[Rfam]
RNA: tRNA
Organism: Phytoactinopolyspora mesophila
RNA sequence: GGCAGGUUGCCCGAGCGGCCAAAGGGAGCUGACUGUAAAUCAGCCGGCACAGCCUUCACAGGUUCGAAUCCUGUACCUGCCA
Numbered sequence: 001g002g003c004a005g006g007u008u009g010c011c012c013g014a015g016c017g018g019c020c021a022a023a024g025g026g027a028g029c030u031g032a033c034u035g036u037a038a039a040u041c042a043g044c045c046g047g048c049a050c051a052g053c054c055u056u057c058a059c060a061g062g063u064u065c066g067a068a069u070c071c072u073g074u075a076c077c078u079g080c081c082a
Base pairs, nucleotide, nucleotide: 001081002080003079004078005077006076007075010026011025012024028044029043030042031041032040058074059073060072061071062070